[Rfam]
RNA sequence: UUCUUAUCAAGAGAGGUGGAGGGAUUGGCCCUGUGAAACCUCAGCAACCAGCCUAUAUCGUUAGGCCCGGUGCUAAGUCCAAAUAGACGAAGUGGUAAGUCUAGAAGAUAAGAA
Numbered sequence: 001u002u003c004u005u006a007u008c009a010a011g012a013g014a015g016g017u018g019g020a021g022g023g024a025u026u027g028g029c030c031c032u033g034u035g036a037a038a039c040c041u042c043a044g045c046a047a048c049c050a051g052c053c054u055a056u057a058u059c060g061u062u063a064g065g066c067c068c069g070g071u072g073c074u075a076a077g078u079c080c081a082a083a084u085a086g087a088c089g090a091a092g093u094g095g096u097a098a099g100u101c102u103a104g105a106a107g108a109u110a111a112g113a114a
Stems, first nucleotide, its partner, number of pairs: 001114008013042005021031003025082004043074004048070002051066004078106001084103005
RNA: SAM riboswitch aptamer (S box leader)